[Rfam]
The family of this 95-nucleotide RNA sequence from Cajanus cajan is "Small nucleolar RNA snoR31/Z110/Z27". Rfam classes the family as a C/D-box small nucleolar RNA. From the family's description: This family contains several related snoRNAs including R31, Z27 and Z110. Pairs were carried over by alignment from the consensus structure, which was predicted with PFOLD.
RNA sequence: UACAUCAUGUGAUGAGAUUGGAAAAAUCUUAGGACACCUUCCUACACAGCAAACAUUGCUGUGGAUGAGAAUGAAAUUUCCAUGCUGAUGAUGUA
Number, nucleotide and partner (000 for none) at each position: 001u095002a094003c093004a092005u091006c090007a089008u000009g000010u000011g000012a000013u000014g000015a000016g000017a000018u000019u000020g000021g000022a000023a000024a000025a000026a000027u000028c000029u000030u000031a000032g000033g000034a000035c000036a000037c000038c000039u000040u000041c000042c000043u000044a000045c000046a000047c000048a000049g000050c000051a000052a000053a000054c000055a000056u000057u000058g000059c000060u000061g000062u000063g000064g000065a000066u000067g000068a000069g000070a000071a000072u000073g000074a000075a000076a000077u000078u000079u000080c000081c000082a000083u000084g000085c000086u000087g000088a000089u007090g006091a005092u004093g003094u002095a001